The record is a 131-nucleotide sequence from Myotis brandtii, which matches "Small nucleolar RNA SNORA65" in Rfam.
U65 belongs to the H/ACA class of snoRNAs which are thought to guide the sites of modification of uridines to pseudouridines.
The base pairs follow the family's consensus structure, which was predicted with RNAalifold.
Rfam 15.1 lists 1,089 matches to the family in 619 species.
Its Rfam clan is "SNORA65 clan".
Gene Ontology terms of the family: RNA processing and nucleolus.
A search with the family's covariance model found it, with a score of 83 bits.
The source organism's lineage runs through Eukaryota, Eumetazoa, Bilateria, Vespertilionidae and Myotis.
The family's RNA type in Rfam is H/ACA-box small nucleolar RNA.
RNA sequence: CCAAUUCCUGAAGCAUUCCAUGUUUUUCUGUUGGCUGGUGCAAUCCAGUAGUGAGCUGAUUCUAAACCCCAGCCCAGGAAACAGGGUUGUUCUUCAUGUGGAUGACUCUGUGCCGAAGCAUGGGAUCAGAA
Number, nucleotide and partner (000 for none) at each position: 001c000002c000003a000004a000005u051006u050007c000008c048009u047010g046011a000012a000013g000014c000015a000016u000017u000018c038019c037020a036021u000022g000023u033024u000025u000026u000027u000028c000029u000030g000031u000032u000033g023034g000035c000036u020037g019038g018039u000040g000041c000042a000043a000044u000045c000046c010047a009048g008049u000050a006051g005052u000053g000054a000055g000056c000057u000058g000059a000060u000061u000062c000063u000064a000065a000066a000067c124068c123069c122070c000071a121072g119073c118074c000075c000076a000077g114078g113079a000080a000081a000082c110083a109084g108085g107086g106087u105088u000089g000090u102091u101092c100093u000094u000095c000096a000097u000098g000099u000100g092101g091102a090103u000104g000105a087106c086107u085108c084109u083110g082111u000112g000113c078114c077115g000116a000117a000118g073119c072120a000121u071122g069123g068124g067125a000126u000127c000128a000129g000130a000131a000